[Rfam]
RNA sequence: ACAGCUCUGCUUUUUCCCGAAGCCCUGCGUUCCACGCGGGGCGUUGAAGUAGGAAAAGCGGGGCAAU
Numbered sequence: 001a002c003a004g005c006u007c008u009g010c011u012u013u014u015u016c017c018c019g020a021a022g023c024c025c026u027g028c029g030u031u032c033c034a035c036g037c038g039g040g041g042c043g044u045u046g047a048a049g050u051a052g053g054a055a056a057a058g059c060g061g062g063g064c065a066a067u
Base pairs, nucleotide, nucleotide: 001067004064005063006062007061008060009059010058012057013056014055017053018052022042023041024040025039026038027037028036029035030034
Dot-bracket structure: (..(((((((.(((..((...(((((((((...))))))))).........)).))))))))))..)